[Rfam]
Record summary: Shown here is a 53-nucleotide sequence from Listeria monocytogenes, a member of the family "Ribosomal protein L13 leader". The source organism's lineage runs through Bacteria, Bacilli, Caryophanales, Listeriaceae and Listeria. Rfam's curators write: This family is a putative r-protein leader autoregulatory structure found in B. subtilis and other low-GC Gram-positive bacteria. It is located in the 5' untranslated regions of mRNAs encoding the L13-S9 (rplM-rpsI) ribosomal protein operon.

RNA sequence: GGUAUUGUUUGCCCCACAAUAAGCCCCGGAAGGUUGUUGUGUUUAAACAAUAA
Dot-bracket structure: .....((((((...((((((((...........))))))))..))))))....
It is one of the family's seed sequences.
A reference for the family is Zengel and Lindahl (1994), "Diverse mechanisms for regulating ribosomal protein synthesis in Escherichia coli", Prog Nucleic Acid Res Mol Biol.